[Rfam]
RNA sequence: UCUUAGGGAUGCUAGGGUUCCGGUUCACGCGAACGUGUCGUGAAUGUCUGGUCCGAGAGCAGCCCGGUGCAUCCGCGAAUCGAUGAUGCUUCGCAGAGCGCACUACACGGCGGGACAAAAGCCCGGGAGAU
Numbered sequence: 001u002c003u004u005a006g007g008g009a010u011g012c013u014a015g016g017g018u019u020c021c022g023g024u025u026c027a028c029g030c031g032a033a034c035g036u037g038u039c040g041u042g043a044a045u046g047u048c049u050g051g052u053c054c055g056a057g058a059g060c061a062g063c064c065c066g067g068u069g070c071a072u073c074c075g076c077g078a079a080u081c082g083a084u085g086a087u088g089c090u091u092c093g094c095a096g097a098g099c100g101c102a103c104u105a106c107a108c109g110g111c112g113g114g115a116c117a118a119a120a121g122c123c124c125g126g127g128a129g130a131u
Stems, first nucleotide, its partner, number of pairs: 007064002010061003015054002020051002022048001023045006066104005106126001108129001112124003
RNA: Guanidine-I riboswitch aptamer